[Rfam]
RNA sequence: GUAGCAUUUUCACAGGUCCUCCCUCAAGCAGUGGGGCCAGGAUUUGGUACCUGGUGCUGAGAGAAAACUCUUGAUUACAUCCUUGCCCUGAGAAUGUAACAGUGGCCCCUGUAAUUCCAGGGGACAGAG
Numbered sequence: 001g002u003a004g005c006a007u008u009u010u011c012a013c014a015g016g017u018c019c020u021c022c023c024u025c026a027a028g029c030a031g032u033g034g035g036g037c038c039a040g041g042a043u044u045u046g047g048u049a050c051c052u053g054g055u056g057c058u059g060a061g062a063g064a065a066a067a068c069u070c071u072u073g074a075u076u077a078c079a080u081c082c083u084u085g086c087c088c089u090g091a092g093a094a095u096g097u098a099a100c101a102g103u104g105g106c107c108c109c110u111g112u113a114a115u116u117c118c119a120g121g122g123g124a125c126a127g128a129g
Base pairs, nucleotide, nucleotide: 003058004057005056006055007054008053013046014045015044017042018041019040020039022036023035024034025033068123069122070121071119073117074116076114079112080111085106086105087104088102089101090100
The family of this 129-nucleotide sequence from Jaculus jaculus is "Small nucleolar RNA SNORA30/SNORA37 family". The organism belongs to Jaculus, within Eukaryota. Rfam links the family to the GO terms RNA processing and nucleolus. The literature on the family includes a 2001 paper in EMBO J by Huttenhofer et al., "RNomics: an experimental approach that identifies 201 candidates for novel, small, non-messenger RNAs in mouse".